[Rfam]
RNA sequence: GAAUUGGGAAUGAAGAUUUGAAAAAUGCAUAGUUCAACUGACACUUCGUGAUGAACUUUCCAUCAAGCAAUGUCUUUCGCUCCUAUCUGACCCAAUCC
Number, nucleotide and partner (000 for none) at each position: 001g000002a000003a000004u095005u094006g093007g092008g091009a000010a000011u000012g000013a000014a000015g000016a000017u000018u000019u000020g000021a000022a000023a000024a000025a000026u000027g000028c000029a000030u000031a000032g000033u000034u000035c000036a000037a000038c000039u000040g000041a000042c000043a000044c000045u000046u000047c000048g000049u000050g000051a000052u000053g000054a000055a000056c000057u000058u000059u000060c000061c000062a000063u000064c000065a000066a000067g000068c000069a000070a000071u000072g000073u000074c000075u000076u000077u000078c000079g000080c000081u000082c000083c000084u000085a000086u000087c000088u000089g000090a000091c008092c007093c006094a005095a004096u000097c000098c000
Shown here is a 98-nucleotide RNA from Aphanomyces invadans, a member of the family "Small nucleolar RNA snR60/Z15/Z230/Z193/J17". The organism belongs to Aphanomyces, within Eukaryota. The base pairs follow the family's consensus structure. It is annotated as a C/D-box small nucleolar RNA. On this family, see Lowe and Eddy, Science 1999: "A computational screen for methylation guide snoRNAs in yeast". Clan: SNORD77 clan.